Notes: Shown here is a 112-nucleotide RNA from Nocardia aurantiaca, a member of the family "SAM (S-adenosyl methionine) riboswitch aptamer". It scores 94 bits against the family's covariance model. Pairs were carried over by alignment from the consensus structure, which is taken from published work. The organism belongs to Nocardia, within Bacteria.
RNA sequence: GGUCAAGAGCAUCAGCGUUAAGGCCCCGGCUUGCUGAUCGGCAACCCUCCAGCUGCGGUGGGGUGCUCCGGGUGCAGACCGGGCGUUCGAAGGCCGAACGCAAGCGCAACCA
Number, nucleotide and partner (000 for none) at each position: 001g080002g079003u078004c077005a000006a000007g000008a000009g039010c000011a038012u037013c036014a035015g034016c033017g000018u000019u000020a000021a031022g030023g000024c000025c000026c000027c000028g000029g000030c022031u021032u000033g016034c015035u014036g013037a012038u011039c009040g067041g066042c065043a000044a000045c063046c062047c061048u000049c058050c057051a000052g000053c000054u000055g000056c000057g050058g049059u000060g000061g047062g046063g045064u000065g042066c041067u040068c000069c000070g000071g000072g000073u000074g000075c000076a000077g004078a003079c002080c001081g000082g000083g101084c100085g099086u098087u097088c096089g095090a000091a000092g000093g000094c000095c089096g088097a087098a086099c085100g084101c083102a000103a000104g000105c000106g000107c000108a000109a000110c000111c000112a000